RNA sequence: GAUCGCGGUGAUGACUCGGAAAUUCAAGCUCAACAGACCGGAAUGCAGGCAUCUCUCUUUCGAGAUUUGUUUGCGUGUCGAUAAUCCCGCUGAACUGAGCGAUC
Numbered sequence: 001g002a003u004c005g006c007g008g009u010g011a012u013g014a015c016u017c018g019g020a021a022a023u024u025c026a027a028g029c030u031c032a033a034c035a036g037a038c039c040g041g042a043a044u045g046c047a048g049g050c051a052u053c054u055c056u057c058u059u060u061c062g063a064g065a066u067u068u069g070u071u072u073g074c075g076u077g078u079c080g081a082u083a084a085u086c087c088c089g090c091u092g093a094a095c096u097g098a099g100c101g102a103u104c
Stems, first nucleotide, its partner, number of pairs: 001104006

This 104-nucleotide sequence from Lactuca sativa belongs to the Rfam family "Small nucleolar RNA Z107/R87". Rfam classes the family as a C/D-box small nucleolar RNA. The literature on the family includes a 2003 paper in Nucleic Acids Res by Chen et al., "The high diversity of snoRNAs in plants: identification and comparative study of 120 snoRNA genes from Oryza sativa". Gene Ontology terms of the family: RNA processing and nucleolus. The family's consensus secondary structure was predicted with RNAfold.